[Rfam]
RNA sequence: GUGGGAGAUCGGGCGGACGGGAGUCUCGCCAACCCGGUCAGGUCCUGACGGAAGCAGCCGCAACGAGUUUCCUCCCGGGUCGUUCCGGUCUCCCGCCUU
Number, nucleotide and partner (000 for none) at each position: 001g000002u000003g094004g093005g092006a091007g090008a000009u000010c000011g085012g084013g083014c082015g081016g000017a000018c077019g076020g075021g074022a073023g072024u000025c067026u066027c065028g064029c000030c000031a000032a000033c000034c000035c060036g059037g058038u057039c000040a000041g000042g000043u052044c051045c050046u000047g000048a000049c000050g045051g044052a043053a000054g000055c000056a000057g038058c037059c036060g035061c000062a000063a000064c028065g027066a026067g025068u000069u000070u000071c000072c023073u022074c021075c020076c019077g018078g000079g000080u000081c015082g014083u013084u012085c011086c000087g000088g000089u000090c007091u006092c005093c004094c003095g000096c000097c000098u000099u000
The family of this 99-nucleotide sequence from Alphaproteobacteria bacterium HT1-32 is "Bacterial small signal recognition particle RNA". The signal recognition particle (SRP) is a universally conserved ribonucleoprotein involved in the co-translational targeting of proteins to membranes. The match comes from Rfam's covariance-model search (52 bits). Lineage of the source: Bacteria > Pseudomonadati > Pseudomonadota > Alphaproteobacteria.